[Rfam]
RNA sequence: GAUGGCAUAUUCAAGCUCAACAGACCAAAUCACAGGUCUCUCUGGAUCUACUCCUCUGGGAUUGAUUUGUAUGCCGAUUUUCCCGCUGAACCGAGCCAUC
Numbered sequence: 001g002a003u004g005g006c007a008u009a010u011u012c013a014a015g016c017u018c019a020a021c022a023g024a025c026c027a028a029a030u031c032a033c034a035g036g037u038c039u040c041u042c043u044g045g046a047u048c049u050a051c052u053c054c055u056c057u058g059g060g061a062u063u064g065a066u067u068u069g070u071a072u073g074c075c076g077a078u079u080u081u082c083c084c085g086c087u088g089a090a091c092c093g094a095g096c097c098a099u100c
Base pairs, nucleotide, nucleotide: 001100002099003098004097005096006095